[Rfam]
RNA: ALIL pseudoknot
RNA sequence: GGCUUUUUUCGCGGCGGCGGACCUCGACCGCCUACGCGAGAGAUGAUCAUGUUCAUUGAUGAUCAUCGCGGGGAGCACGGCGUCGAGGCGAUCUGCAAGGUUUUGCCGAUCGCGCCC
Numbered sequence: 001g002g003c004u005u006u007u008u009u010c011g012c013g014g015c016g017g018c019g020g021a022c023c024u025c026g027a028c029c030g031c032c033u034a035c036g037c038g039a040g041a042g043a044u045g046a047u048c049a050u051g052u053u054c055a056u057u058g059a060u061g062a063u064c065a066u067c068g069c070g071g072g073g074a075g076c077a078c079g080g081c082g083u084c085g086a087g088g089c090g091a092u093c094u095g096c097a098a099g100g101u102u103u104u105g106c107c108g109a110u111c112g113c114g115c116c117c
Stems, first nucleotide, its partner, number of pairs: 016032005079116004089112002092109002095106004